[Rfam]
RNA sequence: UGCGGUGUUUGGCAAUGGUAGAACUCACACUGGUUGACUCAAUGGAUCCGGUGGGUCUAGACUUGCCAACAACUGAU
Numbered sequence: 001u002g003c004g005g006u007g008u009u010u011g012g013c014a015a016u017g018g019u020a021g022a023a024c025u026c027a028c029a030c031u032g033g034u035u036g037a038c039u040c041a042a043u044g045g046a047u048c049c050g051g052u053g054g055g056u057c058u059a060g061a062c063u064u065g066c067c068a069a070c071a072a073c074u075g076a077u
Stems, first nucleotide, its partner, number of pairs: 003075004009069007019059004024054001028053006
Dot-bracket structure: ..((((..(((((((...((((.(...((((((..............))))))).))))...)))))))..))))..

Notes: A member of the RNA family "mir-182 microRNA precursor family" from Denticeps clupeoides, 77 nucleotides long. Taxonomically the source falls in Denticeps (Eukaryota, Eumetazoa, Chordata, Clupeiformes). Its family is annotated with RISC complex and miRNA-mediated post-transcriptional gene silencing in the Gene Ontology.